[Rfam]
RNA: Small nucleolar RNA snoR97
Organism: Anisodus acutangulus
RNA sequence: UUCACAUGAUGGGGUCUGAAAAACUCAUAAAGUUAGUGCUGUUUACCAGCUUCUUCUCUUGAGCAUCCGGCGAGAUGGGAGUUAAAUCAUAGCACUAAAUGU
Numbered sequence: 001u002u003c004a005c006a007u008g009a010u011g012g013g014g015u016c017u018g019a020a021a022a023a024c025u026c027a028u029a030a031a032g033u034u035a036g037u038g039c040u041g042u043u044u045a046c047c048a049g050c051u052u053c054u055u056c057u058c059u060u061g062a063g064c065a066u067c068c069g070g071c072g073a074g075a076u077g078g079g080a081g082u083u084a085a086a087u088c089a090u091a092g093c094a095c096u097a098a099a100u101g102u
Base pairs, nucleotide, nucleotide: 035096036095037094038093039092040091041090048083049082050081051080052079053078055075056074057073058072